RNA sequence: GUGGGCGUCUUCUAAUGGUUAGGAAAUCUCGUUGUGGUUUCAACAAUCCCGUGAAAAUGUCGGUUCGAUUCCGGCCGCCCACA
Dot-bracket structure: (((((((..((((........)))).((.((..................)).))....(((((.......)))))))))))).

Rfam assigns this 83-nucleotide RNA sequence from Puccinia sorghi to the family "tRNA". Gene Ontology term of the family: triplet codon-amino acid adaptor activity. Lineage of the source: Eukaryota > Fungi > Dikarya > Pucciniaceae > Puccinia. It is annotated as a transfer RNA. Rfam's curators write: Transfer RNA (tRNA) molecules are approximately 80 nucleotides in length.